[Rfam]
RNA sequence: UGUACCUUUAAUUCAGUCCAGAGAGGCUGGCAAGGUAACGUUAAUCGUUUAUUCGACCUAUAGCAGGACAACUUCCCGCUGGCGCUGCGUGCGCAAGCGGAGCUUGUCUAACCGCUGAGGUCCGUAUAAUAAACGGUGAAACUCCUUGCGCACUCUGCAAGGAGUUUUUUUUGU
Dot-bracket structure: ..((((((....((((((......)))))).))))))........((((((((..........................................................................))))))))(.((((((((((((.......)))))))))))).)....
RNA: PyrR binding site